[Rfam]
Shown here is a 45-nucleotide sequence from Streptomyces sp. NRRL F-5053, a member of the family "L31-Actinobacteria ribosomal protein leader". Rfam's curators put it in the seed alignment. Rfam classes the family as a cis-regulatory leader. Pairs were carried over by alignment from the consensus structure, which is taken from published work.

RNA sequence: UCGGCCCCGGUUCACGGUGGACAACCCGUCUCCCGACCCGGCGCC
Numbered sequence: 001u002c003g004g005c006c007c008c009g010g011u012u013c014a015c016g017g018u019g020g021a022c023a024a025c026c027c028g029u030c031u032c033c034c035g036a037c038c039c040g041g042c043g044c045c
Base pairs, nucleotide, nucleotide: 003045004044005043007041008040009039010038015035016034017033019031020030021029022028